[Rfam]
RNA sequence: GUGAAGUUGAUCACAACAAACAUAUACCCCUUUGUUUGAACCGUGAAAAAUUUCUCCCAUCCCCUUUGUUCGUAUUUUUAUAGAAAAAUGCCCUGCCGCAGCGGGGCAUUUUUC
Numbered sequence: 001g002u003g004a005a006g007u008u009g010a011u012c013a014c015a016a017c018a019a020a021c022a023u024a025u026a027c028c029c030c031u032u033u034g035u036u037u038g039a040a041c042c043g044u045g046a047a048a049a050a051u052u053u054c055u056c057c058c059a060u061c062c063c064c065u066u067u068g069u070u071c072g073u074a075u076u077u078u079u080a081u082a083g084a085a086a087a088a089u090g091c092c093c094u095g096c097c098g099c100a101g102c103g104g105g106g107c108a109u110u111u112u113u114c
Stems, first nucleotide, its partner, number of pairs: 003054006011046004017038006070082001073080001086111011
A member of the RNA family "RNA Staph. aureus E (RoxS)" from Bacillus sp. FJAT-18017, 114 nucleotides long. Taxonomically the source falls in Bacillus (Bacteria, Bacillota, Bacilli, Bacillaceae). It was shown to be regulated by the presence of nitric oxide (NO). It scores 91 bits against the family's covariance model.